[Rfam]
RNA sequence: AAUAGUUCUGGCGAUGAAGCUCGCCCUUUAAAAGUGCCAAUCUGGCUGAUAGCUUCUGACCUGGU
Numbered sequence: 001a002a003u004a005g006u007u008c009u010g011g012c013g014a015u016g017a018a019g020c021u022c023g024c025c026c027u028u029u030a031a032a033a034g035u036g037c038c039a040a041u042c043u044g045g046c047u048g049a050u051a052g053c054u055u056c057u058g059a060c061c062u063g064g065u
Base pairs, nucleotide, nucleotide: 010025011024012023013022016056017055018054019053020052021051036046037045038044
Rfam assigns this 65-nucleotide RNA from Leptolinea tardivitalis to the family "Fluoride riboswitch aptamer (crcB RNA motif)". The family has 289 seed sequences and 2,293 matches in Rfam 15.1. Rfam links the family to the GO terms positive regulation of gene expression and response to fluoride. Lineage of the source: Bacteria > Chloroflexota > Anaerolineae > Anaerolineales > Leptolinea. The family's consensus secondary structure is taken from published work.